[Rfam]
RNA: Glycine riboswitch aptamer
Organism: Sphingomonas sp. Leaf343
RNA sequence: AUGCCAUGCGCGGGAGAGUGCCUCUUUCAGGGGCCGCCGAAGGAGCAACCGCCCCGGAAUCUCUCAGGCACCAGGGACCGCGCGAGGCUA
Numbered sequence: 001a002u003g004c005c006a007u008g009c010g011c012g013g014g015a016g017a018g019u020g021c022c023u024c025u026u027u028c029a030g031g032g033g034c035c036g037c038c039g040a041a042g043g044a045g046c047a048a049c050c051g052c053c054c055c056g057g058a059a060u061c062u063c064u065c066a067g068g069c070a071c072c073a074g075g076g077a078c079c080g081c082g083c084g085a086g087g088c089u090a
Stems, first nucleotide, its partner, number of pairs: 007084007020034004036069003039065002043063003049057002